This 151-nucleotide RNA sequence from Pseudideonella sakaiensis belongs to the Rfam family "FMN riboswitch aptamer (RFN element)". It scores 103 bits against the family's covariance model.
RNA sequence: ACACGUCUUCAGGGCGGGGUGGAAUUCCCCACCGGCGGUAGGCGGCGCAAGCCGCGAGCCCGCGAGCGCCCGUCGCCUCCCGGCGGCGGGGUCAGCAGACCUGGUCGAAUGCCAGGGCCGACGGUCACAGUCCGGAUGAAAGAAGAUGUGC
Numbered sequence: 001a002c003a004c005g006u007c008u009u010c011a012g013g014g015c016g017g018g019g020u021g022g023a024a025u026u027c028c029c030c031a032c033c034g035g036c037g038g039u040a041g042g043c044g045g046c047g048c049a050a051g052c053c054g055c056g057a058g059c060c061c062g063c064g065a066g067c068g069c070c071c072g073u074c075g076c077c078u079c080c081c082g083g084c085g086g087c088g089g090g091g092u093c094a095g096c097a098g099a100c101c102u103g104g105u106c107g108a109a110u111g112c113c114a115g116g117g118c119c120g121a122c123g124g125u126c127a128c129a130g131u132c133c134g135g136a137u138g139a140a141a142g143a144a145g146a147u148g149u150g151c
Base pairs, nucleotide, nucleotide: 003149004148005147006146007145008144009143010142017029018028019027031131032130033120034119035063036062037061038060058118059117066096067095100116101115102114103113104112122134123133124132